[Rfam]
The record is a 76-nucleotide RNA sequence from Alligator sinensis, which matches "Mammalian CPEB3 ribozyme" in Rfam. The mammalian CPEB3 ribozyme is a self cleaving RNA located in the second intron of the CPEB3 gene which belongs to a family of genes regulating messenger RNA polyadenylation. It scores 41 bits against the family's covariance model.
RNA sequence: GUUGGAAGUUUGAGGUCAUAACAGAAGCACUCACAAUGUGGCUGUGUCAGUUUCUAAGAAAUCUGCAAAUUCUGCU
Numbered sequence: 001g002u003u004g005g006a007a008g009u010u011u012g013a014g015g016u017c018a019u020a021a022c023a024g025a026a027g028c029a030c031u032c033a034c035a036a037u038g039u040g041g042c043u044g045u046g047u048c049a050g051u052u053u054c055u056a057a058g059a060a061a062u063c064u065g066c067a068a069a070u071u072c073u074g075c076u
Base pairs, nucleotide, nucleotide: 014043015042016041017040020076022074023073024072025071026070027039028038029037048065049064050063052061053060